[Rfam]
RNA sequence: ACCCGGAUGAGUUUCAGUGGUCUGGGGUGCAGGCUUCGAACUUGUAGCUGAUGAGAGUCAAGGUGGUUUAAUUCCACCUUCUGGGC
Number, nucleotide and partner (000 for none) at each position: 001a000002c085003c084004c083005g082006g081007a080008u000009g078010a000011g000012u027013u026014u025015c024016a023017g022018u000019g000020g000021u000022c017023u016024g015025g014026g013027g012028u046029g045030c044031a043032g042033g041034c000035u000036u000037c000038g000039a000040a000041c033042u032043u031044g030045u029046a028047g000048c000049u060050g059051a058052u057053g000054a000055g000056a000057g052058u051059c050060a049061a000062g000063g077064u076065g075066g074067u000068u000069u000070a000071a000072u000073u000074c066075c065076a064077c063078c009079u000080u007081c006082u005083g004084g003085g002086c000
Rfam assigns this 86-nucleotide sequence from Oncorhynchus kisutch to the family "Selenocysteine transfer RNA". The family's consensus secondary structure is taken from published work. A reference for the family is Mizutani and Goto (2000), "Eukaryotic selenocysteine tRNA has the 9/4 secondary structure", FEBS Lett.